[Rfam]
RNA sequence: GGAGCAGCUUCUGGAGAGACCCUUGCGGCGCCGAAGGAUUCACAAUCUCAGGCAAAAGGACAGAAGAGUAACA
Numbered sequence: 001g002g003a004g005c006a007g008c009u010u011c012u013g014g015a016g017a018g019a020c021c022c023u024u025g026c027g028g029c030g031c032c033g034a035a036g037g038a039u040u041c042a043c044a045a046u047c048u049c050a051g052g053c054a055a056a057a058g059g060a061c062a063g064a065a066g067a068g069u070a071a072c073a
Stems, first nucleotide, its partner, number of pairs: 008066006020028002030053003033049002037047003
RNA: Glycine riboswitch aptamer